This 99-nucleotide RNA sequence from Pelotomaculum isophthalicicum belongs to the Rfam family "TPP riboswitch aptamer (THI element)".

RNA sequence: UAUAGCUGCUAGGGGUGCCGCAAGGCUGAGAGAGAGUAUUCUCAACCCUUUGAACCUGAUGCGGGUAAUGCCGUCGUAGGGAAGCGUAAGCUGUGUAUG
Numbered sequence: 001u002a003u004a005g006c007u008g009c010u011a012g013g014g015g016u017g018c019c020g021c022a023a024g025g026c027u028g029a030g031a032g033a034g035a036g037u038a039u040u041c042u043c044a045a046c047c048c049u050u051u052g053a054a055c056c057u058g059a060u061g062c063g064g065g066u067a068a069u070g071c072c073g074u075c076g077u078a079g080g081g082a083a084g085c086g087u088a089a090g091c092u093g094u095g096u097a098u099g
Base pairs, nucleotide, nucleotide: 007086008085009084010083011049012048013047014046017026018025019024033042034041035040055080056079057078058077061074062073063072064071
Notes:
Its family is annotated with thiamine pyrophosphate binding in the Gene Ontology.